Description: FMN riboswitch aptamer (RFN element): a 213-nucleotide sequence from Paenibacillus arenilitoris. The RFN element is a highly conserved domain that is found frequently in the 5'-untranslated regions of prokaryotic mRNAs that encode for flavin mononucleotide (FMN) biosynthesis and transport proteins. Taxonomically the source falls in Paenibacillus (Bacteria, Bacillota, Bacilli, Paenibacillaceae).
RNA sequence: GCUUUCCUUCGGGGUGAGGUGAAAUUCCUAACCGGCGGUGAUCGGAGUUGCAUGGCGAGGAUCGGAUAACCGGACUUGCCGUGCGUCAUCCGUCAGUCCGUGACCCGGUCCGAUUGCGGUUCGUCAGGCUUCAUGCCUGGUCGAACGAAUGGGAACGGUGGACCUGGUGCAAAUCCGGGACCGACAGUAUAGUCUGGAUGGGAGAAGGAGAGG
Numbered sequence: 001g002c003u004u005u006c007c008u009u010c011g012g013g014g015u016g017a018g019g020u021g022a023a024a025u026u027c028c029u030a031a032c033c034g035g036c037g038g039u040g041a042u043c044g045g046a047g048u049u050g051c052a053u054g055g056c057g058a059g060g061a062u063c064g065g066a067u068a069a070c071c072g073g074a075c076u077u078g079c080c081g082u083g084c085g086u087c088a089u090c091c092g093u094c095a096g097u098c099c100g101u102g103a104c105c106c107g108g109u110c111c112g113a114u115u116g117c118g119g120u121u122c123g124u125c126a127g128g129c130u131u132c133a134u135g136c137c138u139g140g141u142c143g144a145a146c147g148a149a150u151g152g153g154a155a156c157g158g159u160g161g162a163c164c165u166g167g168u169g170c171a172a173a174u175c176c177g178g179g180a181c182c183g184a185c186a187g188u189a190u191a192g193u194c195u196g197g198a199u200g201g202g203a204g205a206a207g208g209a210g211a212g213g
Base pairs, nucleotide, nucleotide: 003211004210005209006208007207008206009205010204017029018028019027031193032192033183034182035101036100037099038098105158106157163179164178165177166176167175185196186195187194